[Rfam]
RNA sequence: AAUCGCGUCUUAGGGGAGUAGCCUUCUUCAUCCGGCAAGAGAUUCUGUCAACAUACUUGAGCCCUCAUGGCUUAUGGCAGUUUCGUACCGCGAAAGCGGUAUU
Numbered sequence: 001a002a003u004c005g006c007g008u009c010u011u012a013g014g015g016g017a018g019u020a021g022c023c024u025u026c027u028u029c030a031u032c033c034g035g036c037a038a039g040a041g042a043u044u045c046u047g048u049c050a051a052c053a054u055a056c057u058u059g060a061g062c063c064c065u066c067a068u069g070g071c072u073u074a075u076g077g078c079a080g081u082u083u084c085g086u087a088c089c090g091c092g093a094a095a096g097c098g099g100u101a102u103u
Stems, first nucleotide, its partner, number of pairs: 026039003041084002045080006058074005085102007
Dot-bracket structure: .........................(((........))).((..((((((.......(((((.......)))))))))))..))(((((((....))))))).
Annotation: A member of the RNA family "Manganese Mn2+ riboswitch aptamer (yybP-ykoY)" from Aliikangiella marina, 103 nucleotides long. A search with the family's covariance model found it, with a score of 52 bits. For this family Rfam cites "New RNA motifs suggest an expanded scope for riboswitches in bacterial genetic control" (Barrick et al., Proc Natl Acad Sci U S A, 2004). The organism belongs to Aliikangiella, within Bacteria. This RNA was originally discovered in E. coli during a large scale screen and was named SraF. The family was later found to exist upstream of related families of protein genes in many bacteria, including the the yybP and ykoK genes in B. subtilis. The specific functions of these proteins are unknown, but this structured RNA element may be involved in their genetic regulation as a riboswitch.